[Rfam]
Nucleotides: 080
Stems, first nucleotide, its partner, number of pairs: 006075008015066003026056005032051003
Number, partner (000 for none) and nucleotide at each position: 001000g002000g003000c004000a005000u006075c007074g008073c009072u010071c011070g012069c013068u014000g015066u016065a017064a018000a019000u020000u021000g022000u023000a024000a025000u026056c027055a028054u029053c030052a031000a032051a033050g034049c035000g036000u037000u038000u039000u040000c041000u042000c043000a044000g045000a046000g047000c048000c049034g050033c051032u052030u053029g054028g055027u056026g057000u058000u059000a060000c061000u062000u063000c064017u065016u066015a067000c068013a069012g070011u071010g072009a073008g074007u075006g076000u077000g078000c079000c080000a
Overview: The family of this 80-nucleotide sequence from Drosophila melanogaster is "mir-971 microRNA precursor family". It is one of the family's seed sequences. The organism belongs to Sophophora, within Eukaryota. Gene Ontology terms of the family: RISC complex and miRNA-mediated post-transcriptional gene silencing. The base pairs follow the family's consensus structure, which was predicted with RNAalifold.